[Rfam]
RNA sequence: CCGUGCUAGACGGGGAGGUAGCGGUGUCCUGUAACUCGCAAUCCGCUAUAGCGGGGUUGAAUUCCUGUUUUGAGAUCUUGUUUGAUGUAGGGUCCGCCCUUUACACGUGGUGUUGAGAGUCGGGUCCUUCGCAAUGGACGCCUAUGAACCCGGUCAGGUCCGGAAGGAAGCAGCCGUAAGUAGGAAUGUUCAUGUGCCGAAGGGUCGCCUGAUUUGAGCUAACGAUAAAGGUCCGCUUAUGUCGCAAGACCGAUAACAGGUGCACGG
Numbered sequence: 001c002c003g004u005g006c007u008a009g010a011c012g013g014g015g016a017g018g019u020a021g022c023g024g025u026g027u028c029c030u031g032u033a034a035c036u037c038g039c040a041a042u043c044c045g046c047u048a049u050a051g052c053g054g055g056g057u058u059g060a061a062u063u064c065c066u067g068u069u070u071u072g073a074g075a076u077c078u079u080g081u082u083u084g085a086u087g088u089a090g091g092g093u094c095c096g097c098c099c100u101u102u103a104c105a106c107g108u109g110g111u112g113u114u115g116a117g118a119g120u121c122g123g124g125u126c127c128u129u130c131g132c133a134a135u136g137g138a139c140g141c142c143u144a145u146g147a148a149c150c151c152g153g154u155c156a157g158g159u160c161c162g163g164a165a166g167g168a169a170g171c172a173g174c175c176g177u178a179a180g181u182a183g184g185a186a187u188g189u190u191c192a193u194g195u196g197c198c199g200a201a202g203g204g205u206c207g208c209c210u211g212a213u214u215u216g217a218g219c220u221a222a223c224g225a226u227a228a229a230g231g232u233c234c235g236c237u238u239a240u241g242u243c244g245c246a247a248g249a250c251c252g253a254u255a256a257c258a259g260g261u262g263c264a265c266g267g
Stems, first nucleotide, its partner, number of pairs: 001267006009058003012030004017025001019023001035055005064260006074251001076249003083244009095235002099230005107223002109220003117215009126203006132194002135192005141184005151176004159168003
The record is a 267-nucleotide RNA from Paenibacillus albiflavus, which matches "Bacterial large signal recognition particle RNA" in Rfam. About the family: The signal recognition particle (SRP) is a universally conserved ribonucleoprotein involved in the co-translational targeting of proteins to membranes.